This 66-nucleotide RNA sequence from Mizuhopecten yessoensis belongs to the Rfam family "mir-1991 microRNA precursor family".

RNA sequence: AGCCUUACCCUGUAAAUCGGAGAAGUUUAACACUCAAUCAUAUUUCUCGUUUCACAGGGUAUAUUU
Numbered sequence: 001a002g003c004c005u006u007a008c009c010c011u012g013u014a015a016a017u018c019g020g021a022g023a024a025g026u027u028u029a030a031c032a033c034u035c036a037a038u039c040a041u042a043u044u045u046c047u048c049g050u051u052u053c054a055c056a057g058g059g060u061a062u063a064u065u066u
Base pairs, nucleotide, nucleotide: 006061007060008059009058010057011056012055013054015052016051018049019048021047022046023045024044025043026042
Dot-bracket structure: .....((((((((.((.((.((((((...............)))))))).)).)))))))).....
Overview:
NCBI's taxonomy places the organism under Eukaryota, Eumetazoa, Bilateria, Spiralia, Mizuhopecten.